Shown here is a 149-nucleotide RNA sequence from Peribacillus faecalis, a member of the family "FMN riboswitch aptamer (RFN element)". NCBI's taxonomy places the organism under Bacteria, Bacillati, Bacillota, Bacillaceae, Peribacillus.

RNA sequence: AUCUACUUUCGGGGCAGGGUGAAAUUCCCGACCGGCGGUGUUGAAGUUUAAUCUUCUAAGCCCGUGACCUAUAUUUUUCUUCGGAAGAAUAUAGCUGAUUUGGUGAGACUCCAAAGCCGACAGUAUAGUCUGGAUGGGAGAAGGUGGAG
Numbered sequence: 001a002u003c004u005a006c007u008u009u010c011g012g013g014g015c016a017g018g019g020u021g022a023a024a025u026u027c028c029c030g031a032c033c034g035g036c037g038g039u040g041u042u043g044a045a046g047u048u049u050a051a052u053c054u055u056c057u058a059a060g061c062c063c064g065u066g067a068c069c070u071a072u073a074u075u076u077u078u079c080u081u082c083g084g085a086a087g088a089a090u091a092u093a094g095c096u097g098a099u100u101u102g103g104u105g106a107g108a109c110u111c112c113a114a115a116g117c118c119g120a121c122a123g124u125a126u127a128g129u130c131u132g133g134a135u136g137g138g139a140g141a142a143g144g145u146g147g148a149g
Stems, first nucleotide, its partner, number of pairs: 003147008017029003031129002033119002035065004060117002069094005099115005121132003
Dot-bracket structure: ..((((((((......(((.......))).[[((((((.....................[[))))...(((((................)))))....(((((.......)))))]])).(((....]]))).......))))))))..
Its family is annotated with FMN binding in the Gene Ontology.